[Rfam]
RNA sequence: GUUACAGUGAUGAAAAUGAUUCUGCCAUAUGAUUAAGGAUGAUUAUAUCUUUAACCGUUCCACUUCUUUCUGAGGAC
Number, nucleotide and partner (000 for none) at each position: 001g077002u076003u075004a000005c074006a000007g000008u000009g000010a000011u000012g000013a000014a000015a000016a000017u000018g000019a000020u000021u000022c000023u000024g000025c000026c000027a000028u000029a000030u000031g000032a000033u000034u000035a000036a000037g000038g000039a000040u000041g000042a000043u000044u000045a000046u000047a000048u000049c000050u000051u000052u000053a000054a000055c000056c000057g000058u000059u000060c000061c000062a000063c000064u000065u000066c000067u000068u000069u000070c000071u000072g000073a000074g005075g003076a002077c001
Small nucleolar RNA SNORD47: a 77-nucleotide RNA from Eleutherodactylus coqui. A search with the family's covariance model found it, with a score of 55 bits. A reference for the family is Galardi et al. (2002), "Purified box C/D snoRNPs are able to reproduce site-specific 2'-O-methylation of target RNA in vitro", Mol Cell Biol. Its family is annotated with nucleolus and RNA processing in the Gene Ontology.